[Rfam]
RNA sequence: GCUAUGAAUGGGCAAACCCAUUGAAAAGUGGGGACGCAAAGCCACGGGCCUAAUGUACACGUUACGAUGGCAGCCGGGUUGCCAAC
Numbered sequence: 001g002c003u004a005u006g007a008a009u010g011g012g013c014a015a016a017c018c019c020a021u022u023g024a025a026a027a028g029u030g031g032g033g034a035c036g037c038a039a040a041g042c043c044a045c046g047g048g049c050c051u052a053a054u055g056u057a058c059a060c061g062u063u064a065c066g067a068u069g070g071c072a073g074c075c076g077g078g079u080u081g082c083c084a085a086c
Stems, first nucleotide, its partner, number of pairs: 012037002017032006040080004045076003048071003055065003
Notes
This 86-nucleotide RNA sequence from Brevibacillus brevis belongs to the Rfam family "c-di-GMP-I riboswitch aptamer". The match comes from Rfam's covariance-model search (80 bits). The base pairs follow the family's consensus structure, which is taken from published work.